[Rfam]
The family of this 97-nucleotide sequence from Hibiscus syriacus is "mir-393 microRNA precursor family".
Rfam links the family to the GO terms miRNA-mediated post-transcriptional gene silencing and RISC complex.
Rfam 15.1 lists 1,052 matches to the family in 221 species.
Lineage of the source: Eukaryota > Pentapetalae > rosids > Malvoideae > Hibiscus.
A search with the family's covariance model found it, with a score of 60 bits.
RNA sequence: AAAGGAGGAGUCCAAAGGGAUAGCAUGAUCCCGAAUUGUGAUUUGUUUUAGGGGUUGAAAAAUAAAGGAUCAAUGCGAUCCCUUUGGAUGCUUCCUA
Numbered sequence: 001a002a003a004g005g006a007g008g009a010g011u012c013c014a015a016a017g018g019g020a021u022a023g024c025a026u027g028a029u030c031c032c033g034a035a036u037u038g039u040g041a042u043u044u045g046u047u048u049u050a051g052g053g054g055u056u057g058a059a060a061a062a063u064a065a066a067g068g069a070u071c072a073a074u075g076c077g078a079u080c081c082c083u084u085u086g087g088a089u090g091c092u093u094c095c096u097a
Stems, first nucleotide, its partner, number of pairs: 003096004008091001010089012023076003026072006037064003